[Rfam]
RNA sequence: GUCGAGCUUGGUAACGCUAGCUUGUGACUCGAGUGAGGGCAUUAAGGUGGUGGAACAUUGCUUUGGCUGCGCUCGGUUGGGCUGUUUGCUGCUGUAUGCUGGCUUGCCCAUUUCAAGUUGGGAGCUGGCCAAUGGGUCUUAUGCGAAAGCGUGGGUCUCCUUGGUCCUAAACUGAAGGGUAAUGCGUGAGGCUGGUUUCACAGAGCAGCGAAUACUUUCGGUUCCUGUCAGUGGAGGGAGGGAUAACAAGCUGCUUAUGCGUUCAGCCCACACAUAAACUGAGUGUGCCUAGCAUAUGAACCACCACUUUU
Numbered sequence: 001g002u003c004g005a006g007c008u009u010g011g012u013a014a015c016g017c018u019a020g021c022u023u024g025u026g027a028c029u030c031g032a033g034u035g036a037g038g039g040c041a042u043u044a045a046g047g048u049g050g051u052g053g054a055a056c057a058u059u060g061c062u063u064u065g066g067c068u069g070c071g072c073u074c075g076g077u078u079g080g081g082c083u084g085u086u087u088g089c090u091g092c093u094g095u096a097u098g099c100u101g102g103c104u105u106g107c108c109c110a111u112u113u114c115a116a117g118u119u120g121g122g123a124g125c126u127g128g129c130c131a132a133u134g135g136g137u138c139u140u141a142u143g144c145g146a147a148a149g150c151g152u153g154g155g156u157c158u159c160c161u162u163g164g165u166c167c168u169a170a171a172c173u174g175a176a177g178g179g180u181a182a183u184g185c186g187u188g189a190g191g192c193u194g195g196u197u198u199c200a201c202a203g204a205g206c207a208g209c210g211a212a213u214a215c216u217u218u219c220g221g222u223u224c225c226u227g228u229c230a231g232u233g234g235a236g237g238g239a240g241g242g243a244u245a246a247c248a249a250g251c252u253g254c255u256u257a258u259g260c261g262u263u264c265a266g267c268c269c270a271c272a273c274a275u276a277a278a279c280u281g282a283g284u285g286u287g288c289c290u291a292g293c294a295u296a297u298g299a300a301c302c303a304c305c306a307c308u309u310u311u
Stems, first nucleotide, its partner, number of pairs: 001040003004023005010017001028037003044310010056298002059294002062292002065289003069286010079269006090259002094255001100253007108242002111236005117229001119227007127166006134159003138155007173220006183212001185210003192203003
This 311-nucleotide sequence from Vigna radiata belongs to the Rfam family "Plant signal recognition particle RNA".
Taxonomically the source falls in Vigna radiata (Eukaryota, Embryophyta, Spermatophyta, fabids).
A search with the family's covariance model found it, with a score of 218 bits.